[Rfam]
The family of this 135-nucleotide RNA sequence from Mastacembelus armatus is "Small nucleolar RNA SNORA9". Rfam's curators write: ACA9 is a member of the H/ACA class of snoRNA that guide the sites of modification of uridines to pseudouridines.
RNA sequence: GUGCAGACUUUUCCAGCGAGGCCGAGCCUGUGGUGGCUCCGUCCUUUCCUGUAGUGUCUGCUAGAGAGACGUGAGGCGGUUUGAGGCCCUGCUGUGGCUCUUCAUGGCAGGGUUAUAGGUAAACCUCCAACAUUU
Numbered sequence: 001g002u003g004c005a006g007a008c009u010u011u012u013c014c015a016g017c018g019a020g021g022c023c024g025a026g027c028c029u030g031u032g033g034u035g036g037c038u039c040c041g042u043c044c045u046u047u048c049c050u051g052u053a054g055u056g057u058c059u060g061c062u063a064g065a066g067a068g069a070c071g072u073g074a075g076g077c078g079g080u081u082u083g084a085g086g087c088c089c090u091g092c093u094g095u096g097g098c099u100c101u102u103c104a105u106g107g108c109a110g111g112g113u114u115a116u117a118g119g120u121a122a123a124c125c126u127c128c129a130a131c132a133u134u135u
Base pairs, nucleotide, nucleotide: 003061004060005059006058007057008056019045020044021043024039025038026037027036028035073127074126075125076124087112088111089110090109091108092107094105095104096103